[Rfam]
RNA sequence: AGCAAUCUUGCUUUAGCAGCACGUAAAUACUGGAGUUCAUCACCAUAUCUGCACUCUCCAGUAUUACUUUGCUGCUAUAUUACGAUUGCC
Numbered sequence: 001a002g003c004a005a006u007c008u009u010g011c012u013u014u015a016g017c018a019g020c021a022c023g024u025a026a027a028u029a030c031u032g033g034a035g036u037u038c039a040u041c042a043c044c045a046u047a048u049c050u051g052c053a054c055u056c057u058c059c060a061g062u063a064u065u066a067c068u069u070u071g072c073u074g075c076u077a078u079a080u081u082a083c084g085a086u087u088g089c090c
Stems, first nucleotide, its partner, number of pairs: 002089005014077008023068001026065010
A member of the RNA family "mir-15 microRNA precursor family" from Xenopus laevis, 90 nucleotides long. The family is grouped with related families in Rfam's "mir-15 clan". Rfam links the family to the GO terms RISC complex and miRNA-mediated post-transcriptional gene silencing.